RNA sequence: UGGUACCCAACAUGUGGGGCUCGAGAACGGGGGAUCCAGUGAGGGAGGCUGUUUGUGAAGCCAGCACAAAGACAGAAUGGAGGGAAAACAAAAGAGGGAAAGUUUAUGUGGGAGCCUGCUGCAUUUUCUGCACCUCAGUAAAUAAACAGUGAUUAUGGGAUAGGAAAUGAGCUAACACGAGAUCUUGAUUGAAAGUUUAGAAAAGGCUCUAAAGGCACGAGGAGUAAAGGUUAAAAUUAAACAAUUGUGUCAAUAUUUUGAUUAUAUAAAAGAAGUUUGUCCUU
Numbered sequence: 001u002g003g004u005a006c007c008c009a010a011c012a013u014g015u016g017g018g019g020c021u022c023g024a025g026a027a028c029g030g031g032g033g034a035u036c037c038a039g040u041g042a043g044g045g046a047g048g049c050u051g052u053u054u055g056u057g058a059a060g061c062c063a064g065c066a067c068a069a070a071g072a073c074a075g076a077a078u079g080g081a082g083g084g085a086a087a088a089c090a091a092a093a094g095a096g097g098g099a100a101a102g103u104u105u106a107u108g109u110g111g112g113a114g115c116c117u118g119c120u121g122c123a124u125u126u127u128c129u130g131c132a133c134c135u136c137a138g139u140a141a142a143u144a145a146a147c148a149g150u151g152a153u154u155a156u157g158g159g160a161u162a163g164g165a166a167a168u169g170a171g172c173u174a175a176c177a178c179g180a181g182a183u184c185u186u187g188a189u190u191g192a193a194a195g196u197u198u199a200g201a202a203a204a205g206g207c208u209c210u211a212a213a214g215g216c217a218c219g220a221g222g223a224g225u226a227a228a229g230g231u232u233a234a235a236a237u238u239a240a241a242c243a244a245u246u247g248u249g250u251c252a253a254u255a256u257u258u259u260g261a262u263u264a265u266a267u268a269a270a271a272g273a274a275g276u277u278u279g280u281c282c283u284u
Stems, first nucleotide, its partner, number of pairs: 006033003014028002037051004094136003098131001107123005143162002147159001150157002168211002171207003218260005224254002228246002231243001269284002272281002
RNA: Mason-Pfizer monkey virus packaging signal
Organism: Cavia porcellus